RNA sequence: UAAUUCCUGGGAUGCUCGACAACUCUUGCUUUUUUUGAACCUACAUUUUGACUAACGGGAUUCCAAUAUUUUUAGAUGGAUGUCAGGCCUCCUCUCGAGUGGAAGACAGAAAUCUAAGUGAGGUUGCCCACCUAGCAGCGCUAGGCGUCAAUAUGGUAAGAGCCGGCAUUUUGGGGUUACA
Numbered sequence: 001u002a003a004u005u006c007c008u009g010g011g012a013u014g015c016u017c018g019a020c021a022a023c024u025c026u027u028g029c030u031u032u033u034u035u036u037g038a039a040c041c042u043a044c045a046u047u048u049u050g051a052c053u054a055a056c057g058g059g060a061u062u063c064c065a066a067u068a069u070u071u072u073u074a075g076a077u078g079g080a081u082g083u084c085a086g087g088c089c090u091c092c093u094c095u096c097g098a099g100u101g102g103a104a105g106a107c108a109g110a111a112a113u114c115u116a117a118g119u120g121a122g123g124u125u126g127c128c129c130a131c132c133u134a135g136c137a138g139c140g141c142u143a144g145g146c147g148u149c150a151a152u153a154u155g156g157u158a159a160g161a162g163c164c165g166g167c168a169u170u171u172u173g174g175g176g177u178u179a180c181a
Stems, first nucleotide, its partner, number of pairs: 003178001005176011017165002033153001034151001036150003040145002057129003063123002068119001071118007083106002088102002091099001
A member of the RNA family "6S / SsrS RNA" from Clostridium sp. CAG:43, 181 nucleotides long.
Rfam describes the family as follows. E. coli 6S RNA was the first non coding RNA to be sequenced, but its function was unknown until recently.
The organism belongs to Clostridium, within Bacteria.
Rfam classes the family as a non-coding RNA gene.
The family's consensus secondary structure is taken from published work.